SAH (S-adenosyl-L-homocysteine) riboswitch aptamer: a 99-nucleotide sequence from Azomonas macrocytogenes. The base pairs follow the family's consensus structure, which is taken from published work.

RNA sequence: CCAUCCGAGGGGCGCUGCAGCAGUCGGAACCACCGAGGUCCGGUCUGUCAGGCUCGGAUGGGGCGUUCCUUCGCAACGCAUCAACGGCGCCCAUUCGCA
Numbered sequence: 001c002c003a004u005c006c007g008a009g010g011g012g013c014g015c016u017g018c019a020g021c022a023g024u025c026g027g028a029a030c031c032a033c034c035g036a037g038g039u040c041c042g043g044u045c046u047g048u049c050a051g052g053c054u055c056g057g058a059u060g061g062g063g064c065g066u067u068c069c070u071u072c073g074c075a076a077c078g079c080a081u082c083a084a085c086g087g088c089g090c091c092c093a094u095u096c097g098c099a
Base pairs, nucleotide, nucleotide: 002060003059004058005057006056007055008054021047022046023045025043